[Rfam]
RNA sequence: CUGCUCCCCAGGGCUCGGUCCUCUCCAUGUGGUCCUGACCUGCCCUUUGUGAGCAAGAGCAUCAGGACUGGUUUGGGGGUGUCCUGCUUGAGUAGAUGUGGGACACCAUGGUUGGCAGUACAACA
Numbered sequence: 001c002u003g004c005u006c007c008c009c010a011g012g013g014c015u016c017g018g019u020c021c022u023c024u025c026c027a028u029g030u031g032g033u034c035c036u037g038a039c040c041u042g043c044c045c046u047u048u049g050u051g052a053g054c055a056a057g058a059g060c061a062u063c064a065g066g067a068c069u070g071g072u073u074u075g076g077g078g079g080u081g082u083c084c085u086g087c088u089u090g091a092g093u094a095g096a097u098g099u100g101g102g103a104c105a106c107c108a109u110g111g112u113u114g115g116c117a118g119u120a121c122a123a124c125a
Stems, first nucleotide, its partner, number of pairs: 003054004008049001012044003017040004025032002065121001067119004073111003078107008086097001088095002
Dot-bracket structure: ..((((.(...(((..((((....((....))....)))).)))....).))))..........(.((((..(((..(((((((((.((....)).)..)))))))).)))....)))).)....
The family of this 125-nucleotide RNA from Castor canadensis is "Small Cajal body specific RNA 23". From the family's description: scaRNAs are a specific class of small nuclear RNAs which localise to the Cajal bodies and guide the modification of RNA polymerase II transcribed spliceosomal RNAs U1, U2, U4, U5 and U12. Its family is annotated with Cajal body, nucleolus and RNA processing in the Gene Ontology. A search with the family's covariance model found it, with a score of 118 bits. Taxonomically the source falls in Castor (Eukaryota, Euteleostomi, Boreoeutheria, Euarchontoglires).